[Rfam]
RNA sequence: UGACCCCUGCACGGGAGCCUCGACCAGAGGCUGAGAGGGCGAUCUGCCGACCGUCGAACCUGAUCCGGGUCAUGCCGGCGAUAGGGAGCAACGAUGAGCAAGCA
Numbered sequence: 001u002g003a004c005c006c007c008u009g010c011a012c013g014g015g016a017g018c019c020u021c022g023a024c025c026a027g028a029g030g031c032u033g034a035g036a037g038g039g040c041g042a043u044c045u046g047c048c049g050a051c052c053g054u055c056g057a058a059c060c061u062g063a064u065c066c067g068g069g070u071c072a073u074g075c076c077g078g079c080g081a082u083a084g085g086g087a088g089c090a091a092c093g094a095u096g097a098g099c100a101a102g103c104a
Stems, first nucleotide, its partner, number of pairs: 008090003011054004017031005038048004059085004065078004
Rfam assigns this 104-nucleotide RNA from Paraoerskovia marina to the family "TPP riboswitch aptamer (THI element)". Its family is annotated with thiamine pyrophosphate binding in the Gene Ontology. The match comes from Rfam's covariance-model search (63 bits). Pairs were carried over by alignment from the consensus structure, which is taken from published work.